[Rfam]
A member of the RNA family "Vault RNA" from Gymnodraco acuticeps, 104 nucleotides long. By type it is a non-coding RNA gene. Rfam's curators write: This family of RNAs are found as part of the enigmatic vault ribonucleoprotein complex. A search with the family's covariance model found it, with a score of 70 bits. Pairs were carried over by alignment from the consensus structure, which is taken from published work.
RNA sequence: GCGCUGGUUUAGCUCAGUGGUUACUUCGAACAACAAUUCCUCUCCAGAAUUACUGCUCUCUGUCCCUUCGCGGGAUCGAACCACGGGCGCUGUCCAGUGUUUUC
Numbered sequence: 001g002c003g004c005u006g007g008u009u010u011a012g013c014u015c016a017g018u019g020g021u022u023a024c025u026u027c028g029a030a031c032a033a034c035a036a037u038u039c040c041u042c043u044c045c046a047g048a049a050u051u052a053c054u055g056c057u058c059u060c061u062g063u064c065c066c067u068u069c070g071c072g073g074g075a076u077c078g079a080a081c082c083a084c085g086g087g088c089g090c091u092g093u094c095c096a097g098u099g100u101u102u103u104c
Stems, first nucleotide, its partner, number of pairs: 002099006012088004017084004025080005